[Rfam]
Rfam assigns this 86-nucleotide RNA from Solanum commersonii to the family "MIR8024 microRNA precursor family". Rfam 15.1 lists 661 matches to the family in 8 species. Gene Ontology terms of the family: RISC complex and miRNA-mediated post-transcriptional gene silencing.
RNA sequence: UUGAAGAAUUUGAAGACUUCAACUUGCAUAUUUAGAAGAUUUAAAGACUUCAACUUGCAAAGUUGGAGGUUUCAAAAACUUUGACU
Numbered sequence: 001u002u003g004a005a006g007a008a009u010u011u012g013a014a015g016a017c018u019u020c021a022a023c024u025u026g027c028a029u030a031u032u033u034a035g036a037a038g039a040u041u042u043a044a045a046g047a048c049u050u051c052a053a054c055u056u057g058c059a060a061a062g063u064u065g066g067a068g069g070u071u072u073c074a075a076a077a078a079c080u081u082u083g084a085c086u
Stems, first nucleotide, its partner, number of pairs: 001084006009076006017068005025059004032053002035050002